[Rfam]
Shown here is a 57-nucleotide RNA from Roseinatronobacter ekhonensis, a member of the family "sul1 RNA".
Rfam 15.1 lists 519 matches to the family in 480 species.
The source organism's lineage runs through Bacteria, Pseudomonadota, Alphaproteobacteria, Paracoccaceae and Roseinatronobacter.
The family's RNA type in Rfam is riboswitch.

RNA sequence: CAUGGACCCGGACACAGCUUCGGGUGGCUCUUCCGGCCGCCUAUCCGCCGGAUAACG
Numbered sequence: 001c002a003u004g005g006a007c008c009c010g011g012a013c014a015c016a017g018c019u020u021c022g023g024g025u026g027g028c029u030c031u032u033c034c035g036g037c038c039g040c041c042u043a044u045c046c047g048c049c050g051g052a053u054a055a056c057g
Stems, first nucleotide, its partner, number of pairs: 006025006032052006